The record is a 181-nucleotide sequence from Oryza sativa, which matches "MIR812 microRNA precursor family" in Rfam. Taxonomically the source falls in Oryza sativa (Eukaryota, Streptophyta, Embryophyta, Oryzoideae).
RNA sequence: AAUAGGUGCAGUUUUGCACUAUUCACGUUCAAAGUUUGACCGUUCGUCUUAUUUAAAAAUUUUUUAUGAUUAGUAUUUUUAUUGCUAUGAGAUGAUAAAACAUAAAUAGUAAUUUAUGUGUGACUAAAUAUUUUUAAAUUUUUUAUAUAAGACAGACAGUCAAACGGAUGUAGUACUUGAU
Numbered sequence: 001a002a003u004a005g006g007u008g009c010a011g012u013u014u015u016g017c018a019c020u021a022u023u024c025a026c027g028u029u030c031a032a033a034g035u036u037u038g039a040c041c042g043u044u045c046g047u048c049u050u051a052u053u054u055a056a057a058a059a060u061u062u063u064u065u066a067u068g069a070u071u072a073g074u075a076u077u078u079u080u081a082u083u084g085c086u087a088u089g090a091g092a093u094g095a096u097a098a099a100a101c102a103u104a105a106a107u108a109g110u111a112a113u114u115u116a117u118g119u120g121u122g123a124c125u126a127a128a129u130a131u132u133u134u135u136a137a138a139u140u141u142u143u144u145a146u147a148u149a150a151g152a153c154a155g156a157c158a159g160u161c162a163a164a165c166g167g168a169u170g171u172a173g174u175a176c177u178u179g180a181u
Stems, first nucleotide, its partner, number of pairs: 028168003034165007042157003046153007
Pairs were carried over by alignment from the consensus structure, which was predicted with RNAalifold. A search with the family's covariance model found it, with a score of 108 bits.